[Rfam]
RNA sequence: CUUUGUGAUCUUCCACAGCUUUCUUGAACUGCACGCAUGAUGAAUAAUCCCUUUGGUUAAUUGUGAUCUGGUCUCUGAGAGAUCGUAGCUAGACUCGAGCGGUUGCAUUGGCAUCAGAGAGAGCAGUUCAAUAAAGCUGUGGGAAAUUGCAGAGA
Numbered sequence: 001c002u003u004u005g006u007g008a009u010c011u012u013c014c015a016c017a018g019c020u021u022u023c024u025u026g027a028a029c030u031g032c033a034c035g036c037a038u039g040a041u042g043a044a045u046a047a048u049c050c051c052u053u054u055g056g057u058u059a060a061u062u063g064u065g066a067u068c069u070g071g072u073c074u075c076u077g078a079g080a081g082a083u084c085g086u087a088g089c090u091a092g093a094c095u096c097g098a099g100c101g102g103u104u105g106c107a108u109u110g111g112c113a114u115c116a117g118a119g120a121g122a123g124c125a126g127u128u129c130a131a132u133a134a135a136g137c138u139g140u141g142g143g144a145a146a147u148u149g150c151a152g153a154g155a
Stems, first nucleotide, its partner, number of pairs: 003152005013142003017138006024131004029126004